The record is a 55-nucleotide sequence from Dictyostelium discoideum, which matches "Class I RNA from Dictyostelium" in Rfam. For this family Rfam cites "Novel non-coding RNAs in Dictyostelium discoideum and their expression during development" (Aspegren et al., Nucleic Acids Res, 2004). It is one of the family's seed sequences. The base pairs follow the family's consensus structure, which is taken from published work. By type it is a non-coding RNA gene. Rfam's curators write: Dictyostelium Class I RNA was first reported for Aspegren et al. 2004 in Dictyostelium discoideum. Sucgang et al. 2011 identify putative homologs of Class I RNA in D. discoideum and D. purpureum. Lineage of the source: Eukaryota > Amoebozoa > Eumycetozoa > Dictyosteliaceae > Dictyostelium discoideum.
RNA sequence: GUUGACCUUACAGCAAAUCUUACAAUUUCAUCCUAAGAAAAAAUACAGUCAACUG
Numbered sequence: 001g002u003u004g005a006c007c008u009u010a011c012a013g014c015a016a017a018u019c020u021u022a023c024a025a026u027u028u029c030a031u032c033c034u035a036a037g038a039a040a041a042a043a044u045a046c047a048g049u050c051a052a053c054u055g
Stems, first nucleotide, its partner, number of pairs: 001053006